RNA sequence: UAAUGAAUGUAGCAUGGUACUGUACACGGAAACUGAACUUAGGAUCGACAUGUCUGCCAUCUCUGAGUUCUUUCUUUGAUGAGACGGCCUGGUUUAGAUCCACAUUC
Numbered sequence: 001u002a003a004u005g006a007a008u009g010u011a012g013c014a015u016g017g018u019a020c021u022g023u024a025c026a027c028g029g030a031a032a033c034u035g036a037a038c039u040u041a042g043g044a045u046c047g048a049c050a051u052g053u054c055u056g057c058c059a060u061c062u063c064u065g066a067g068u069u070c071u072u073u074c075u076u077u078g079a080u081g082a083g084a085c086g087g088c089c090u091g092g093u094u095u096a097g098a099u100c101c102a103c104a105u106u107c
Base pairs, nucleotide, nucleotide: 012025014023015022042090043089045087046086052080053079054078056074
The record is a 107-nucleotide RNA from Arabis alpina, which matches "Small nucleolar RNA snoR100" in Rfam. The match comes from Rfam's covariance-model search (78 bits). The family's consensus secondary structure was predicted with WAR. The source organism's lineage runs through Eukaryota, Streptophytina, Magnoliopsida, Brassicales and Arabis.